[Rfam]
RNA sequence: CUCUUAUCCAGAGAGGUGGAGGGACUGGCCCUAUGAAACCCGGCAACCGGCUUUAUCAUAAAGCAUCGGUGCCAAUUCCUGCGGUACGAUUGUACCGACAGAUGAGAG
Numbered sequence: 001c002u003c004u005u006a007u008c009c010a011g012a013g014a015g016g017u018g019g020a021g022g023g024a025c026u027g028g029c030c031c032u033a034u035g036a037a038a039c040c041c042g043g044c045a046a047c048c049g050g051c052u053u054u055a056u057c058a059u060a061a062a063g064c065a066u067c068g069g070u071g072c073c074a075a076u077u078c079c080u081g082c083g084g085u086a087c088g089a090u091u092g093u094a095c096c097g098a099c100a101g102a103u104g105a106g107a108g
Base pairs, nucleotide, nucleotide: 001108002107003106004105005104006103007102008101013041015040016039017038021031022030023029025081027079028078042073043072044071045070047069048068050064051063052062053061077100082097083096084095085094086093087092
RNA: SAM riboswitch aptamer (S box leader)